[Rfam]
RNA sequence: GUCAACUACCCGCCGCCUAUAGAGGCGGGGGCUUGAAAAAGCCCUGAUUGACUACCCUCAGCCACAUAAGUGGCUACGUUAGACAGGUACACCCUAUGAUGCUGCUCAAGUUCCAGGCUCUGUCGUACAGGUCUAAACAGUCCUGAGAGGUAGGGACAGUGAUCUGCACAUAACAAGCCUGUCUAACAUUGAGGAUGAGCACCUAAC
Numbered sequence: 001g002u003c004a005a006c007u008a009c010c011c012g013c014c015g016c017c018u019a020u021a022g023a024g025g026c027g028g029g030g031g032c033u034u035g036a037a038a039a040a041g042c043c044c045u046g047a048u049u050g051a052c053u054a055c056c057c058u059c060a061g062c063c064a065c066a067u068a069a070g071u072g073g074c075u076a077c078g079u080u081a082g083a084c085a086g087g088u089a090c091a092c093c094c095u096a097u098g099a100u101g102c103u104g105c106u107c108a109a110g111u112u113c114c115a116g117g118c119u120c121u122g123u124c125g126u127a128c129a130g131g132u133c134u135a136a137a138c139a140g141u142c143c144u145g146a147g148a149g150g151u152a153g154g155g156a157c158a159g160u161g162a163u164c165u166g167c168a169c170a171u172a173a174c175a176a177g178c179c180u181g182u183c184u185a186a187c188a189u190u191g192a193g194g195a196u197g198a199g200c201a202c203c204u205a206a207c
Stems, first nucleotide, its partner, number of pairs: 001052005007046002010031002013028002016025002032041003055193001057191001060075005078187011089123002093117003098112003101203001103201006125169002128166006137160002140157005146151001